[Rfam]
RNA sequence: UAGGCGUAUCCUGAAAAGCCUUAGAAGAGUAGGGG
Numbered sequence: 001u002a003g004g005c006g007u008a009u010c011c012u013g014a015a016a017a018g019c020c021u022u023a024g025a026a027g028a029g030u031a032g033g034g035g
Stems, first nucleotide, its partner, number of pairs: 002021004010034003
Dot-bracket structure: .((((....[[[.....))))..........]]].
DUF805b RNA: a 35-nucleotide sequence from Pedobacter frigoris. Rfam classes the family as a cis-regulatory element. Clan: DUF805 clan.